[Rfam]
Notes:
A member of the RNA family "Purine riboswitch aptamer" from Clostridium sp. cel8, 102 nucleotides long. Rfam 15.1 lists 4,097 matches to the family in 1,411 species. Gene Ontology term of the family: purine nucleobase biosynthetic process. The match comes from Rfam's covariance-model search (84 bits). The family is grouped with related families in Rfam's "Purine riboswitches".

RNA sequence: UAAAUUUAAGUUUAUAAAACUCGUAUAUAUUCGGUAAUAUGGUCCGAAAGUUUCUACCUGCUAACCUUAAAUAUGCAGACUACGAGGUAAUGUUUGAAUUUG
Dot-bracket structure: .................(.((((((....(((((.........))))).........((((..(.......)..))))..)))))).)..............